[Rfam]
Nucleotides: 126
Stems, first nucleotide, its partner, number of pairs: 001126002004123005017029003031107002033097002035048004043095002051073002077093005099110003
Number, partner (000 for none) and nucleotide at each position: 001126c002125g003000a004123u005122g006121u007120u008119c009000u010000c011000g012000g013000g014000g015000c016000g017029g018028g019027g020000u021000g022000a023000g024000a025000u026000u027019c028018c029017c030000c031107a032106c033097c034096g035048g036047c037046g038045g039000u040000a041000u042000a043095g044094c045038c046037c047036g048035c049000g050000a051073g052072c053000g054000c055000c056000c057000u058000u059000u060000u061000c062000g063000a064000a065000g066000g067000g068000g069000u070000c071000a072052g073051c074000a075000g076000a077093u078092c079091c080090g081089g082000u083000g084000a085000g086000a087000u088000u089081c090080c091079g092078g093077a094044g095043c096034c097033g098000a099110c100109g101108g102000u103000a104000u105000a106032g107031u108101c109100c110099g111000g112000a113000u114000g115000g116000a117000a118000g119008g120007a121006a122005c123004a124000a125002c126001g

This 126-nucleotide RNA sequence from Pseudorhodobacter turbinis belongs to the Rfam family "FMN riboswitch aptamer (RFN element)".
Pairs were carried over by alignment from the consensus structure, which is taken from published work.